[Rfam]
RNA: c-di-GMP-I riboswitch aptamer
Organism: Oscillibacter sp. CAG:155
RNA sequence: UAGAUGUAAAGGCAAACCGUUUGAAAAAGCGGGACGCAAAGCCAGGGGGCUAAAGCGGUACAGGCACCGCCAGGCCAGCCCGGCCGCCAUA
Dot-bracket structure: ...........((...((((((....))))))...))...(((.((((((....((((........))))...)))..)))))).......